[Rfam]
Nucleotides: 129
Stems, first nucleotide, its partner, number of pairs: 023119008035110008048101004
Number, partner (000 for none) and nucleotide at each position: 001000u002000a003000u004000u005000g006000u007000u008000a009000g010000c011000g012000c013000a014000a015000a016000a017000u018000u019000c020000g021000c022000a023119c024118a025117c026116g027115u028114g029113c030112c031000g032000u033000c034000a035110c036109g037108u038107u039106g040105u041104u042103c043000u044000g045000g046000g047000u048101g049100c050099u051098c052000a053000u054000g055000g056000u057000g058000a059000u060000c061000g062000a063000a064000a065000c066000a067000c068000c069000g070000g071000u072000a073000u074000u075000u076000g077000c078000u079000a080000a081000g082000u083000g084000u085000u086000u087000g088000g089000u090000c091000c092000u093000u094000a095000a096000g097000a098051g099050a100049g101048u102000u103042g104041a105040a106039u107038g108037a109036u110035g111000g112030g113029g114028c115027a116026u117025g118024u119023g120000g121000a122000g123000g124000a125000c126000u127000a128000a129000c
This 129-nucleotide RNA sequence from Alkalimarinus sediminis belongs to the Rfam family "t44 RNA". This family consists of a number of bacterial RNA genes of between 135 and 170 bases in length. The source organism's lineage runs through Bacteria, Gammaproteobacteria, Alteromonadales, Alteromonadaceae and Alkalimarinus. The match comes from Rfam's covariance-model search (63 bits). The family's RNA type in Rfam is small RNA.